[Rfam]
RNA sequence: CCGUGCUAGAUGGGGAGGUAGCGGUGCCCUGUCACUCGCAAUCCGCUAUAGCGAGAUCGAAUUCCUGUUUGAGGUCUUAUCACGCAGGUUCCGGCGCGAUCGUGGCGUGUUGAUCGCAGGGUCCUUCGCAAGGGACGCCCAUGAACCCGGUCAGGUCCGGAAGGAAGCAGCCGUAAGUGGUCACGUUCUUGUGUUGAAGGGUAGCCUUGCGGGAGCGUUCGCGACCGUGUCCGGCUGGAUGAUAACGAUCGAGGACAGGUGCACGG
Numbered sequence: 001c002c003g004u005g006c007u008a009g010a011u012g013g014g015g016a017g018g019u020a021g022c023g024g025u026g027c028c029c030u031g032u033c034a035c036u037c038g039c040a041a042u043c044c045g046c047u048a049u050a051g052c053g054a055g056a057u058c059g060a061a062u063u064c065c066u067g068u069u070u071g072a073g074g075u076c077u078u079a080u081c082a083c084g085c086a087g088g089u090u091c092c093g094g095c096g097c098g099a100u101c102g103u104g105g106c107g108u109g110u111u112g113a114u115c116g117c118a119g120g121g122u123c124c125u126u127c128g129c130a131a132g133g134g135a136c137g138c139c140c141a142u143g144a145a146c147c148c149g150g151u152c153a154g155g156u157c158c159g160g161a162a163g164g165a166a167g168c169a170g171c172c173g174u175a176a177g178u179g180g181u182c183a184c185g186u187u188c189u190u191g192u193g194u195u196g197a198a199g200g201g202u203a204g205c206c207u208u209g210c211g212g213g214a215g216c217g218u219u220c221g222c223g224a225c226c227g228u229g230u231c232c233g234g235c236u237g238g239a240u241g242a243u244a245a246c247g248a249u250c251g252a253g254g255a256c257a258g259g260u261g262c263a264c265g266g
Stems, first nucleotide, its partner, number of pairs: 001266006009058003012030004017025001019023001035055005064259007073250004079243004085237003092233002096228003100224002104220002106217003114212009123200006129191002132189005137182001139180004148173004156165003
Source information
A member of the RNA family "Bacterial large signal recognition particle RNA" from Cohnella nanjingensis, 266 nucleotides long. NCBI's taxonomy places the organism under Bacteria, Bacillati, Bacillota, Paenibacillaceae, Cohnella. The family's consensus secondary structure is taken from published work. It is annotated as a non-coding RNA gene. The signal recognition particle (SRP) is a universally conserved ribonucleoprotein involved in the co-translational targeting of proteins to membranes.